[Rfam]
RNA sequence: GAUCAGAGUAGAAGCUGUCAGUAACCGCCGGGCACCCGCCCCAAGUUAUCGGUCAUUGCUCUGGUG
Numbered sequence: 001g002a003u004c005a006g007a008g009u010a011g012a013a014g015c016u017g018u019c020a021g022u023a024a025c026c027g028c029c030g031g032g033c034a035c036c037c038g039c040c041c042c043a044a045g046u047u048a049u050c051g052g053u054c055a056u057u058g059c060u061c062u063g064g065u066g
Base pairs, nucleotide, nucleotide: 005062006061007060008059009058010057015051019052021049022048023047024046025045
RNA: Xanthine riboswitch aptamer (NMT1 RNA)